[Rfam]
RNA sequence: UCGGCCCCGGUUCACGCGACCGCACCCGCGGCAGCGACCCGGCGCC
Number, nucleotide and partner (000 for none) at each position: 001u000002c000003g046004g045005c044006c000007c042008c041009g040010g039011u000012u000013c000014a000015c036016g035017c034018g000019a000020c031021c030022g029023c028024a000025c000026c000027c000028g023029c022030g021031g020032c000033a000034g017035c016036g015037a000038c000039c010040c009041g008042g007043c000044g005045c004046c003
A member of the RNA family "L31-Actinobacteria ribosomal protein leader" from Streptomyces prunicolor, 46 nucleotides long. Pairs were carried over by alignment from the consensus structure, which is taken from published work. On this family, see Eckert and Weinberg, BMC Microbiol 2020: "Discovery of 20 novel ribosomal leader candidates in bacteria and archaea". The family's RNA type in Rfam is cis-regulatory leader. The source organism's lineage runs through Bacteria, Bacillati, Actinomycetota, Streptomycetaceae and Streptomyces prunicolor. It is one of the family's seed sequences.